[Rfam]
RNA: Small nucleolar RNA SNORD30
Organism: Nannospalax galili
RNA sequence: GCAUGUGAUGACUUUCAUAGAAUCUCAUUCAACUGAUGAUUGCUGUUGGGACACGAAAAUCUGACUUCU
Numbered sequence: 001g002c003a004u005g006u007g008a009u010g011a012c013u014u015u016c017a018u019a020g021a022a023u024c025u026c027a028u029u030c031a032a033c034u035g036a037u038g039a040u041u042g043c044u045g046u047u048g049g050g051a052c053a054c055g056a057a058a059a060u061c062u063g064a065c066u067u068c069u
Base pairs, nucleotide, nucleotide: 023051024050025049026048027047030045031044033042
Dot-bracket structure: ......................(((((..((.(........).)).)))))..................